[Rfam]
RNA sequence: AAAAAGGUUUUCUAGGGUUCCGUAGCAACCGCUAGUCUGGUCCGAGAGAAAACCCACAGUAGUAAACUGUGUCACGGAAGGAUAAAAGCCUGGGAGAA
Numbered sequence: 001a002a003a004a005a006g007g008u009u010u011u012c013u014a015g016g017g018u019u020c021c022g023u024a025g026c027a028a029c030c031g032c033u034a035g036u037c038u039g040g041u042c043c044g045a046g047a048g049a050a051a052a053c054c055c056a057c058a059g060u061a062g063u064a065a066a067c068u069g070u071g072u073c074a075c076g077g078a079a080g081g082a083u084a085a086a087a088g089c090c091u092g093g094g095a096g097a098a
Base pairs, nucleotide, nucleotide: 007053008052009051010050011049012048015043016042020040021039022037023034024033025032026031054071056070057069058068059067060066073093075096079091080090081089

A member of the RNA family "Guanidine-I riboswitch aptamer" from Oceanobacillus profundus, 98 nucleotides long. This family represents a conserved RNA structure found upstream of the ykkC and yxkD genes in Bacillus subtilis and related genes in other bacteria. A search with the family's covariance model found it, with a score of 84 bits. The organism belongs to Oceanobacillus, within Bacteria. The pairing is the family consensus, mapped onto this sequence.